[Rfam]
RNA sequence: ACGUCACAGUACUGUGGUCCAGAGAAGCACAUCGCACUGGAGGUGAUUUCCAUCACCUGUGGCUCCAUGUACUUCUCUGUUCCACAGUACUGGAAACGAAA
Numbered sequence: 001a002c003g004u005c006a007c008a009g010u011a012c013u014g015u016g017g018u019c020c021a022g023a024g025a026a027g028c029a030c031a032u033c034g035c036a037c038u039g040g041a042g043g044u045g046a047u048u049u050c051c052a053u054c055a056c057c058u059g060u061g062g063c064u065c066c067a068u069g070u071a072c073u074u075c076u077c078u079g080u081u082c083c084a085c086a087g088u089a090c091u092g093g094a095a096a097c098g099a100a101a
Stems, first nucleotide, its partner, number of pairs: 004094002007092011020079008029070004034065001037062003041058007
Dot-bracket structure: ...((.(((((((((((..((((((((.((((.(..(((.(((((((....))))))).)))..).)))).))))))))..))))))))))))).......
Source information
The record is a 101-nucleotide RNA sequence from Selaginella moellendorffii, which matches "MIR1094 microRNA precursor family" in Rfam. Taxonomically the source falls in Selaginella (Eukaryota, Streptophyta, Streptophytina, Selaginellaceae). Pairs were carried over by alignment from the consensus structure, which was predicted with RNAalifold. It is one of the family's seed sequences. Rfam links the family to the GO terms miRNA-mediated post-transcriptional gene silencing and RISC complex.